[Rfam]
RNA sequence: AGCAUAGCUUGACAACGAGAGAGAGCACGCUUGUUGAUAUUCAUACAAGGGACAUGACUGUGCACAAGCGUGCUCUCUCUCGUAGUCACGAGAUC
Numbered sequence: 001a002g003c004a005u006a007g008c009u010u011g012a013c014a015a016c017g018a019g020a021g022a023g024a025g026c027a028c029g030c031u032u033g034u035u036g037a038u039a040u041u042c043a044u045a046c047a048a049g050g051g052a053c054a055u056g057a058c059u060g061u062g063c064a065c066a067a068g069c070g071u072g073c074u075c076u077c078u079c080u081c082g083u084a085g086u087c088a089c090g091a092g093a094u095c
Base pairs, nucleotide, nucleotide: 010088011087012086013085016082017081020078021077023075025073026072027071028070029069030068031067032066033065034064
Dot-bracket structure: .........((((..((..((.(.((((((((((.............................)))))))))).).))..))..)))).......